[Rfam]
RNA: mir-129 microRNA precursor family
Organism: Chiloscyllium punctatum
RNA sequence: UCGAAUCUUUUUGCGGUCUGGGCUUGCUGUCUGUGACUCUGUAACCGGGAAGCCCUUACCCCAAAAAGCAUUCG
Numbered sequence: 001u002c003g004a005a006u007c008u009u010u011u012u013g014c015g016g017u018c019u020g021g022g023c024u025u026g027c028u029g030u031c032u033g034u035g036a037c038u039c040u041g042u043a044a045c046c047g048g049g050a051a052g053c054c055c056u057u058a059c060c061c062c063a064a065a066a067a068g069c070a071u072u073c074g
Stems, first nucleotide, its partner, number of pairs: 007068007015060003020055004025050001027048002